Notes:
A member of the RNA family "mir-8364 microRNA precursor family" from Pristionchus pacificus, 61 nucleotides long. NCBI's taxonomy places the organism under Eukaryota, Protostomia, Chromadorea, Diplogasteroidea, Pristionchus. The match comes from Rfam's covariance-model search (73 bits). Rfam 15.1 lists 3,320 matches to the family in 2 species.
RNA sequence: UCUCCAUUUCACCUGCUCUCUCAUCGGUCAGAGAUGCGAGAGAGUGUGGGAAAUGGGGAGA
Numbered sequence: 001u002c003u004c005c006a007u008u009u010c011a012c013c014u015g016c017u018c019u020c021u022c023a024u025c026g027g028u029c030a031g032a033g034a035u036g037c038g039a040g041a042g043a044g045u046g047u048g049g050g051a052a053a054u055g056g057g058g059a060g061a
Stems, first nucleotide, its partner, number of pairs: 001059007010050001012048001014046004019041004